The family of this 359-nucleotide part of an RNA from Methanolinea tarda is "Archaeal large subunit ribosomal RNA". The family's consensus secondary structure is taken from published work.
RNA sequence: CGGAGAUAAUUGUGUUAAGGGAACUCGGCAAAUUGGCCCCGUAACUUCGGGAGAAGGGGUGCCUGCCUGGAGAUCAGGCAGGUCGCAGUGACCAGGGAGCUCUAACUGUCUAAUAACAACAUAGGUGACUGCAACUCGGAAACGACUAGUAUAGUCACUGAUUCCUGCCCAGUGCGAGUAUCUGAAUACCGGGUUCAACCGGACGAAGGACUCGUAAACGGCGGGGGUAACUAUGACCCUCUUAAGGUAGCGUAGUACCUUGUCGCUUAAUUGGCGACUUGCAUGAAUGGAUUAAUGAGAGCUCUACUGUCCCUAACACAAGCCCGUUGAACCUUUUGUCCUAGUGCAGAGACUAGGGA
Numbered sequence: 001c002g003g004a005g006a007u008a009a010u011u012g013u014g015u016u017a018a019g020g021g022a023a024c025u026c027g028g029c030a031a032a033u034u035g036g037c038c039c040c041g042u043a044a045c046u047u048c049g050g051g052a053g054a055a056g057g058g059g060u061g062c063c064u065g066c067c068u069g070g071a072g073a074u075c076a077g078g079c080a081g082g083u084c085g086c087a088g089u090g091a092c093c094a095g096g097g098a099g100c101u102c103u104a105a106c107u108g109u110c111u112a113a114u115a116a117c118a119a120c121a122u123a124g125g126u127g128a129c130u131g132c133a134a135c136u137c138g139g140a141a142a143c144g145a146c147u148a149g150u151a152u153a154g155u156c157a158c159u160g161a162u163u164c165c166u167g168c169c170c171a172g173u174g175c176g177a178g179u180a181u182c183u184g185a186a187u188a189c190c191g192g193g194u195u196c197a198a199c200c201g202g203a204c205g206a207a208g209g210a211c212u213c214g215u216a217a218a219c220g221g222c223g224g225g226g227g228u229a230a231c232u233a234u235g236a237c238c239c240u241c242u243u244a245a246g247g248u249a250g251c252g253u254a255g256u257a258c259c260u261u262g263u264c265g266c267u268u269a270a271u272u273g274g275c276g277a278c279u280u281g282c283a284u285g286a287a288u289g290g291a292u293u294a295a296u297g298a299g300a301g302c303u304c305u306a307c308u309g310u311c312c313c314u315a316a317c318a319c320a321a322g323c324c325c326g327u328u329g330a331a332c333c334u335u336u337u338g339u340c341c342u343a344g345u346g347c348a349g350a351g352a353c354u355a356g357g358g359a
Stems, first nucleotide, its partner, number of pairs: 001326003010321008019312003036060005045050001061083009084088001096305007103297002107121003124159008132149001136145003163291003167222003172219002174215005181210003189202004223241006242246001262278006340357005